[Rfam]
RNA sequence: CAAUUAAAUAGGCAAAAUUAAGGAAACUUAAUGACGCAAAGCUAUAGGGGCUAAGGUUAAAACUACGCCAGCCAGUUGCAUAA
Numbered sequence: 001c002a003a004u005u006a007a008a009u010a011g012g013c014a015a016a017a018u019u020a021a022g023g024a025a026a027c028u029u030a031a032u033g034a035c036g037c038a039a040a041g042c043u044a045u046a047g048g049g050g051c052u053a054a055g056g057u058u059a060a061a062a063c064u065a066c067g068c069c070a071g072c073c074a075g076u077u078g079c080a081u082a083a
Stems, first nucleotide, its partner, number of pairs: 012037002017032006040077004047073002049069003056063002
RNA: c-di-GMP-I riboswitch aptamer
Organism: Romboutsia lituseburensis